[Rfam]
Rfam assigns this 133-nucleotide RNA from Zizania palustris to the family "Small nucleolar RNA snoR138". For this family Rfam cites "Mining small RNA sequencing data: a new approach to identify small nucleolar RNAs in Arabidopsis" (Chen and Wu, Nucleic Acids Res, 2009). Taxonomically the source falls in Zizania (Eukaryota, Spermatophyta, Petrosaviidae, Poaceae). Its family is annotated with nucleolus and RNA processing in the Gene Ontology. The match comes from Rfam's covariance-model search (52 bits). The family's RNA type in Rfam is H/ACA-box small nucleolar RNA.

RNA sequence: UGUGCCUCAUGAAUAACCAGCUGCCAAUUUUAUAUUUGCUUUUGGUUCAGACUGGGGCACAUAUCAAACAGAAUCUUCUGAGGGAAGUGAACUGAUUUUCUGUUCAUCCCUUCUUAGAUAGAUUCUGAUAUGU
Numbered sequence: 001u002g003u004g005c006c007u008c009a010u011g012a013a014u015a016a017c018c019a020g021c022u023g024c025c026a027a028u029u030u031u032a033u034a035u036u037u038g039c040u041u042u043u044g045g046u047u048c049a050g051a052c053u054g055g056g057g058c059a060c061a062u063a064u065c066a067a068a069c070a071g072a073a074u075c076u077u078c079u080g081a082g083g084g085a086a087g088u089g090a091a092c093u094g095a096u097u098u099u100c101u102g103u104u105c106a107u108c109c110c111u112u113c114u115u116a117g118a119u120a121g122a123u124u125c126u127g128a129u130a131u132g133u
Stems, first nucleotide, its partner, number of pairs: 003059006015047006023039002070126006077118003080113003084110001087107006
Dot-bracket structure: ..((((((......((((((..((.............))..))))))......))))))..........((((((.((((((.(..((((((.........))))))..))))..)))..)))))).......